[Rfam]
Shown here is a 138-nucleotide RNA from Rhodoplanes roseus, a member of the family "Alphaproteobacterial sRNA BjrC1505". NCBI's taxonomy places the organism under Bacteria, Pseudomonadati, Alphaproteobacteria, Hyphomicrobiales, Rhodoplanes. The match comes from Rfam's covariance-model search (100 bits).
RNA sequence: CGGACGGUAAGACGCCGUUAAGCUUUCCGCUUUAUUACUUUGAUCGUCCACCUCGUGGACAUCGAGUGGCUCCUGUCCACUCUGUUUGACGCCUCCCUGUUGACACUUUAGGGCCGCCUUCGUGGCGGCCCCUUUUUU
Numbered sequence: 001c002g003g004a005c006g007g008u009a010a011g012a013c014g015c016c017g018u019u020a021a022g023c024u025u026u027c028c029g030c031u032u033u034a035u036u037a038c039u040u041u042g043a044u045c046g047u048c049c050a051c052c053u054c055g056u057g058g059a060c061a062u063c064g065a066g067u068g069g070c071u072c073c074u075g076u077c078c079a080c081u082c083u084g085u086u087u088g089a090c091g092c093c094u095c096c097c098u099g100u101u102g103a104c105a106c107u108u109u110a111g112g113g114c115c116g117c118c119u120u121c122g123u124g125g126c127g128g129c130c131c132c133u134u135u136u137u138u
Base pairs, nucleotide, nucleotide: 001042002041003040004039005014006013019034020033021032022031024029046060047059048058049057064082065081066080067079068078069077088101089100090099091098111131112130113129114128115127116126117125118124